[Rfam]
Shown here is a 67-nucleotide sequence from Flavobacterium amnicola, a member of the family "S15-Flavobacteria ribosomal protein leader". The family is grouped with related families in Rfam's "Ribosomal Protein S15 Leader clan". The literature on the family includes a 2020 paper in BMC Microbiol by Eckert and Weinberg, "Discovery of 20 novel ribosomal leader candidates in bacteria and archaea". The match comes from Rfam's covariance-model search (67 bits). Rfam classes the family as a cis-regulatory leader. The organism belongs to Flavobacterium, within Bacteria. The base pairs follow the family's consensus structure, which is taken from published work.

RNA sequence: UAUUUUUGCACCCGUAUUGGAGAAUUACUUCAAUCUACAUAAUAAUCAUUUAAAUAAUAUUAGCAUG
Numbered sequence: 001u002a003u004u005u006u007u008g009c010a011c012c013c014g015u016a017u018u019g020g021a022g023a024a025u026u027a028c029u030u031c032a033a034u035c036u037a038c039a040u041a042a043u044a045a046u047c048a049u050u051u052a053a054a055u056a057a058u059a060u061u062a063g064c065a066u067g
Base pairs, nucleotide, nucleotide: 016034017033018032019031020030021029